RNA: DUF805 RNA
RNA sequence: UCUCCGUGAAGACCAGCCCCCACGUAAAAACGGGGCGUGACCCGAAAAGCCUGACGAGUAGGGACUUAA
Numbered sequence: 001u002c003u004c005c006g007u008g009a010a011g012a013c014c015a016g017c018c019c020c021c022a023c024g025u026a027a028a029a030a031c032g033g034g035g036c037g038u039g040a041c042c043c044g045a046a047a048a049g050c051c052u053g054a055c056g057a058g059u060a061g062g063g064a065c066u067u068a069a
Base pairs, nucleotide, nucleotide: 006023007022008021034051035050036049041063042062